The record is a 116-nucleotide RNA sequence from Gracilibacillus boraciitolerans, which matches "SAM riboswitch aptamer (S box leader)" in Rfam. A search with the family's covariance model found it, with a score of 88 bits.
[Rfam]
RNA sequence: UUCUUAUCCAGAGAGGUGGAGGGACUGGCCCUUUGAAACCUCGGCAACCAUUAAACAGAUUCUUGUUUAAUAUAGGUGCUAAUUCCACUAAGCAGAAUAGCUUAGAUAGAUAAGAG
Numbered sequence: 001u002u003c004u005u006a007u008c009c010a011g012a013g014a015g016g017u018g019g020a021g022g023g024a025c026u027g028g029c030c031c032u033u034u035g036a037a038a039c040c041u042c043g044g045c046a047a048c049c050a051u052u053a054a055a056c057a058g059a060u061u062c063u064u065g066u067u068u069a070a071u072a073u074a075g076g077u078g079c080u081a082a083u084u085c086c087a088c089u090a091a092g093c094a095g096a097a098u099a100g101c102u103u104a105g106a107u108a109g110a111u112a113a114g115a116g
Stems, first nucleotide, its partner, number of pairs: 001116008013042005021031003026087003043080004048076002050071007084108001088105006